[Rfam]
The family of this 142-nucleotide sequence from Thermoactinomyces sp. AS95 is "c-di-AMP riboswitch aptamer (ydaO/yuaA leader)".
RNA sequence: UCAUAAAAAUCGCUGAAUCCCAUGAUGGGAGCGGGGGAACCACCUAUUCCGGGGUGAAUCCCGGGCAAACCGUUUGUCCGGGUAGGGUGACUCUCAACACCCGAAUCCGUCAGCUAACCUCGCAAGCGUUCUGAGAGGAGGA
Numbered sequence: 001u002c003a004u005a006a007a008a009a010u011c012g013c014u015g016a017a018u019c020c021c022a023u024g025a026u027g028g029g030a031g032c033g034g035g036g037g038a039a040c041c042a043c044c045u046a047u048u049c050c051g052g053g054g055u056g057a058a059u060c061c062c063g064g065g066c067a068a069a070c071c072g073u074u075u076g077u078c079c080g081g082g083u084a085g086g087g088u089g090a091c092u093c094u095c096a097a098c099a100c101c102c103g104a105a106u107c108c109g110u111c112a113g114c115u116a117a118c119c120u121c122g123c124a125a126g127c128g129u130u131c132u133g134a135g136a137g138g139a140g141g142a
Stems, first nucleotide, its partner, number of pairs: 011128004018030003031123006041051001052108003060082008085102004
Dot-bracket structure: ..........((((...(((.......)))((((((....(.........)(((.....((((((((.......))))))))..((((..........))))...))).........)))))).))))..............
Background
Rfam links the family to the GO terms cyclic-di-AMP binding and regulation of gene expression. Taxonomically the source falls in Thermoactinomyces (Bacteria, Bacillati, Bacilli, Caryophanales).